[Rfam]
RNA: Glutamine riboswitch aptamer (glnA leader)
RNA sequence: AUCGUUCAACUCAAUAUGAGUCGGAAGUAGGCAUUGUGCUGAAGGAACGCAUG
Numbered sequence: 001a002u003c004g005u006u007c008a009a010c011u012c013a014a015u016a017u018g019a020g021u022c023g024g025a026a027g028u029a030g031g032c033a034u035u036g037u038g039c040u041g042a043a044g045g046a047a048c049g050c051a052u053g
Stems, first nucleotide, its partner, number of pairs: 003049005009021004024050001030040003